This 161-nucleotide RNA from Populus tomentosa belongs to the Rfam family "MIR2912 microRNA precursor family".
The source organism's lineage runs through Eukaryota, Streptophytina, Tracheophyta, fabids and Populus.
The match comes from Rfam's covariance-model search (95 bits).

RNA sequence: UCUAGAACUCCAGCUAAGGGUAACAUUCUGAGCAGUGUUUAGGCUGGAUUGCAUGACAGAUUUUGACUUCUCUUUUGUGGCCAAGCUUUGAAUUUGAAAAUGGCAAAUUUGGGUCUUUCACUCUUCAUAAACAUUGUAGGCCUAUUUCUUAGCUUUCUAGC
Numbered sequence: 001u002c003u004a005g006a007a008c009u010c011c012a013g014c015u016a017a018g019g020g021u022a023a024c025a026u027u028c029u030g031a032g033c034a035g036u037g038u039u040u041a042g043g044c045u046g047g048a049u050u051g052c053a054u055g056a057c058a059g060a061u062u063u064u065g066a067c068u069u070c071u072c073u074u075u076u077g078u079g080g081c082c083a084a085g086c087u088u089u090g091a092a093u094u095u096g097a098a099a100a101u102g103g104c105a106a107a108u109u110u111g112g113g114u115c116u117u118u119c120a121c122u123c124u125u126c127a128u129a130a131a132c133a134u135u136g137u138a139g140g141c142c143u144a145u146u147u148c149u150u151a152g153c154u155u156u157c158u159a160g161c
Stems, first nucleotide, its partner, number of pairs: 002160006008152002012149002016145001018143003021139001023137003035128003041124003050120002053117001055115003059110002062107004067103002073097002077093002